A member of the RNA family "transfer-messenger RNA" from Ruficoccus amylovorans, 353 nucleotides long. Rfam links the family to the GO term RNA catabolic process.
RNA sequence: GGGGGUGUUCCGGAUUCGACCCGGAGCCGUAGGGCCUGGCUGCAUGCCGGAGAUGAUGGUUGGCUCCGUUAUCAAAUCCAUCACACAUAUAAAUGGCGAAACUGAAUACGCCAUGGCUGCCUAAUUAACGCAGUCACGCAGAAGGGCUGAUACCUGUUAGGCCUGGAAGCGAUCAUCUAGCAGGCAUAGUCUGAUCCGGGGAUCCGGGAUCGGGCCGUACUCCAACAGGGUUCUCGCGACUGGAAAGCGCGCUUCAUCGCGUUCCUGCCGUUAAAUCAAACAUGAGGCUAUGUAUGUAGACGCCUUGCUUGAAACCUCCGGACACGCGGGUUCGACUCCCGCCACCUCCACUU
Numbered sequence: 001g002g003g004g005g006u007g008u009u010c011c012g013g014a015u016u017c018g019a020c021c022c023g024g025a026g027c028c029g030u031a032g033g034g035c036c037u038g039g040c041u042g043c044a045u046g047c048c049g050g051a052g053a054u055g056a057u058g059g060u061u062g063g064c065u066c067c068g069u070u071a072u073c074a075a076a077u078c079c080a081u082c083a084c085a086c087a088u089a090u091a092a093a094u095g096g097c098g099a100a101a102c103u104g105a106a107u108a109c110g111c112c113a114u115g116g117c118u119g120c121c122u123a124a125u126u127a128a129c130g131c132a133g134u135c136a137c138g139c140a141g142a143a144g145g146g147c148u149g150a151u152a153c154c155u156g157u158u159a160g161g162c163c164u165g166g167a168a169g170c171g172a173u174c175a176u177c178u179a180g181c182a183g184g185c186a187u188a189g190u191c192u193g194a195u196c197c198g199g200g201g202a203u204c205c206g207g208g209a210u211c212g213g214g215c216c217g218u219a220c221u222c223c224a225a226c227a228g229g230g231u232u233c234u235c236g237c238g239a240c241u242g243g244a245a246a247g248c249g250c251g252c253u254u255c256a257u258c259g260c261g262u263u264c265c266u267g268c269c270g271u272u273a274a275a276u277c278a279a280a281c282a283u284g285a286g287g288c289u290a291u292g293u294a295u296g297u298a299g300a301c302g303c304c305u306u307g308c309u310u311g312a313a314a315c316c317u318c319c320g321g322a323c324a325c326g327c328g329g330g331u332u333c334g335a336c337u338c339c340c341g342c343c344a345c346c347u348c349c350a351c352u353u
Base pairs, nucleotide, nucleotide: 001349002348003347004346005345006344007343021321022320023319024318025317026316030312032310033309034308035307038304039303040302043296044295045294046293047292048068049067050066051065052064055082056081057080058079059078061076114136115135116134117133118132119131120130137171138170139169143164145163146162147161153184154183155182156181157180158179187217189215190214191213192212193211194210195209200232201231203229204228236271237270238269240267242265243264244263245262247260248259249258251288252287253286254285256283257282326342327341328340329339330338

Overview: The organism belongs to Ruficoccus, within Bacteria. Rfam describes the family as follows. Bacterial tmRNA, also known as 10Sa RNA or SsrA, is named for its dual tRNA and mRNA-like properties. It scores 128 bits against the family's covariance model.